RNA sequence: UAAUAAGAUGGCGAUGGAGUUCGCCAAAACCGCUUUUUAAGCUAAUGACUCCUACCAGUAA
Numbered sequence: 001u002a003a004u005a006a007g008a009u010g011g012c013g014a015u016g017g018a019g020u021u022c023g024c025c026a027a028a029a030c031c032g033c034u035u036u037u038u039a040a041g042c043u044a045a046u047g048a049c050u051c052c053u054a055c056c057a058g059u060a061a
Stems, first nucleotide, its partner, number of pairs: 010025004016052006032042003
Source information:
This 61-nucleotide sequence from Bacillus sp. FJAT-49736 belongs to the Rfam family "Fluoride riboswitch aptamer (crcB RNA motif)". Pairs were carried over by alignment from the consensus structure, which is taken from published work.